[Rfam]
Nucleotides: 171
Base pairs, nucleotide, nucleotide: 006166008164009163010162011161016079017078018077019076022073023072024071032064033063034062035061036060037059038058083111084110085109086108087107088106090105091104092103093102094101112138113137114136115135116134117133118132120130121129122128140156141155142154143153144152145151
Number, partner (000 for none) and nucleotide at each position: 001000g002000g003000a004000u005000g006166a007000a008164g009163u010162a011161g012000a013000g014000g015000u016079g017078c018077g019076g020000g021000a022073g023072u024071u025000a026000a027000g028000a029000g030000u031000a032064c033063u034062u035061u036060c037059a038058g039000u040000a041000a042000g043000a044000g045000u046000g047000g048000c049000a050000u051000c052000a053000u054000u055000g056000a057000c058038c059037u060036g061035a062034a063033a064032g065000g066000a067000a068000a069000g070000g071024g072023g073022c074000g075000a076019c077018c078017g079016c080000c081000g082000a083111a084110g085109u086108a087107a088106g089000a090105u091104a092103g093102a094101c095000u096000g097000c098000c099000g100000g101094g102093u103092c104091u105090a106088c107087u108086u109085a110084u111083u112138g113137g114136u115135c116134u117133u118132a119000u120130a121129u122128c123000a124000a125000a126000c127000a128122g129121g130120u131000u132118u133117a134116a135115g136114a137113c138112u139000g140156u141155c142154a143153c144152c145151a146000u147000u148000a149000c150000u151145u152144g153143g154142u155141g156140g157000a158000g159000u160000g161011c162010u163009a164008u165000c166006u167000c168000a169000u170000c171000u